Overview: The family of this 80-nucleotide RNA sequence from Crocodylus porosus is "Mammalian CPEB3 ribozyme". It scores 37 bits against the family's covariance model. Pairs were carried over by alignment from the consensus structure, which is taken from published work.
RNA sequence: AGAGGUCACAAGUUUGAGGCCAUAGCAGAAGUGUUCAUGGCACAGCCCUGUCAUACUCCAAUAAAUCUUCAAGUUCUGCU
Number, nucleotide and partner (000 for none) at each position: 001a000002g000003a000004g000005g000006u000007c000008a000009c000010a000011a000012g000013u000014u000015u000016g048017a000018g047019g046020c045021c000022a000023u000024a080025g079026c078027a077028g076029a075030a074031g043032u042033g041034u000035u000036c000037a000038u000039g000040g000041c033042a032043c031044a000045g020046c019047c018048c016049u000050g000051u000052c000053a068054u000055a066056c000057u064058c000059c000060a000061a000062u000063a000064a057065a000066u055067c000068u053069u000070c000071a000072a000073g000074u030075u029076c028077u027078g026079c025080u024
Gene Ontology term of the family: RNA nuclease activity.